[Rfam]
RNA sequence: GGCCAACGAGGAUAGAGGAAGUCGGGGCAACCCGGCUGGGCGUGAAAUUCCAC
Numbered sequence: 001g002g003c004c005a006a007c008g009a010g011g012a013u014a015g016a017g018g019a020a021g022u023c024g025g026g027g028c029a030a031c032c033c034g035g036c037u038g039g040g041c042g043u044g045a046a047a048u049u050c051c052a053c
Base pairs, nucleotide, nucleotide: 020037021036022035023034024033025032026031
Dot-bracket structure: ...................(((((((....)))))))................